Background:
A member of the RNA family "Bacteroidales small SRP" from Catalinimonas alkaloidigena, 103 nucleotides long. Rfam links the family to the GO terms signal recognition particle, plasma membrane targeting and SRP-dependent cotranslational protein targeting to membrane, signal sequence recognition. The family is grouped with related families in Rfam's "SRP clan". The match comes from Rfam's covariance-model search (62 bits). For this family Rfam cites "A high-resolution transcriptome map identifies small RNA regulation of metabolism in the gut microbe Bacteroides thetaiotaomicron" (Ryan et al., Nat Commun, 2020). It is annotated as a non-coding RNA gene.

RNA sequence: UUUGCCCCGGCAAAUCAGUACGGUCAGCUCCUGCUGAAUUCCCCCAGGACCGGAAGGUAGCAAGGGUAGGUAGUUGAGCGACCGGUACUUGGUUUGCCUUUUU
Numbered sequence: 001u002u003u004g005c006c007c008c009g010g011c012a013a014a015u016c017a018g019u020a021c022g023g024u025c026a027g028c029u030c031c032u033g034c035u036g037a038a039u040u041c042c043c044c045c046a047g048g049a050c051c052g053g054a055a056g057g058u059a060g061c062a063a064g065g066g067u068a069g070g071u072a073g074u075u076g077a078g079c080g081a082c083c084g085g086u087a088c089u090u091g092g093u094u095u096g097c098c099u100u101u102u103u
Stems, first nucleotide, its partner, number of pairs: 009098007017089004021084004